Overview
This 300-nucleotide sequence from Gopherus evgoodei belongs to the Rfam family "Metazoan signal recognition particle RNA". It scores 253 bits against the family's covariance model. It is annotated as a non-coding RNA gene. NCBI's taxonomy places the organism under Eukaryota, Bilateria, Testudinata, Cryptodira, Gopherus. Rfam links the family to the GO terms SRP-dependent cotranslational protein targeting to membrane, signal sequence recognition and signal recognition particle, endoplasmic reticulum targeting.

[Rfam]
RNA sequence: GCCGGGCGCCGUGGCUGGUGCCUGUGAUCCCAGCUCCCGGGGAGGCUGAGGCCGGCGGAUCGCUUGAGCUCGGGAGUUCUGGGCUGCAGCGGGCUGUGCCGAUCGGGUGUCCAUACUAAGUUCGGCAUCAAUAUGGUGAUCCCGGGGGAGCUUGGGGUCCCCAGGUUGCCUAAGGAGGGGUGAACCGGCCCAGGUCGGGAACGGAGCAGGUCAAAACUCCCGUGCCGAUCAGUAGUGGGAUCGCGCCUGUGAAUAGCCCCUGCAGCGUAGCCUGGGCAAGAGAGUGAGACACGGUCUCUU
Numbered sequence: 001g002c003c004g005g006g007c008g009c010c011g012u013g014g015c016u017g018g019u020g021c022c023u024g025u026g027a028u029c030c031c032a033g034c035u036c037c038c039g040g041g042g043a044g045g046c047u048g049a050g051g052c053c054g055g056c057g058g059a060u061c062g063c064u065u066g067a068g069c070u071c072g073g074g075a076g077u078u079c080u081g082g083g084c085u086g087c088a089g090c091g092g093g094c095u096g097u098g099c100c101g102a103u104c105g106g107g108u109g110u111c112c113a114u115a116c117u118a119a120g121u122u123c124g125g126c127a128u129c130a131a132u133a134u135g136g137u138g139a140u141c142c143c144g145g146g147g148g149a150g151c152u153u154g155g156g157g158u159c160c161c162c163a164g165g166u167u168g169c170c171u172a173a174g175g176a177g178g179g180g181u182g183a184a185c186c187g188g189c190c191c192a193g194g195u196c197g198g199g200a201a202c203g204g205a206g207c208a209g210g211u212c213a214a215a216a217c218u219c220c221c222g223u224g225c226c227g228a229u230c231a232g233u234a235g236u237g238g239g240a241u242c243g244c245g246c247c248u249g250u251g252a253a254u255a256g257c258c259c260c261u262g263c264a265g266c267g268u269a270g271c272c273u274g275g276g277c278a279a280g281a282g283a284g285u286g287a288g289a290c291a292c293g294g295u296c297u298c299u300u
Stems, first nucleotide, its partner, number of pairs: 001046003004023008028043003048298007060287006068277007079270003083266007091258001093257005099251001104249007111239002114237005120230001122228007129168004134163003138159009169175002177220005187212004195204003